[Rfam]
RNA sequence: UGGCAACAAUGAUGAAGGAACUGUAACUGUAGGUAAUGUUUCAUUACUGCGUGGAGACACCAGUCCCUCUAAACUGAAGUUGCCG
Numbered sequence: 001u002g003g004c005a006a007c008a009a010u011g012a013u014g015a016a017g018g019a020a021c022u023g024u025a026a027c028u029g030u031a032g033g034u035a036a037u038g039u040u041u042c043a044u045u046a047c048u049g050c051g052u053g054g055a056g057a058c059a060c061c062a063g064u065c066c067c068u069c070u071a072a073a074c075u076g077a078a079g080u081u082g083c084c085g
Stems, first nucleotide, its partner, number of pairs: 001085007
The record is an 85-nucleotide RNA sequence from Steatornis caripensis, which matches "Small nucleolar RNA SNORD127" in Rfam. The match comes from Rfam's covariance-model search (75 bits). It is annotated as a C/D-box small nucleolar RNA. The literature on the family includes a 2006 paper in Nucleic Acids Res by Yang et al., "snoSeeker: an advanced computational package for screening of guide and orphan snoRNA genes in the human genome". Its family is annotated with RNA processing and nucleolus in the Gene Ontology. Lineage of the source: Eukaryota > Tetrapoda > Sauropsida > Dinosauria > Steatornis.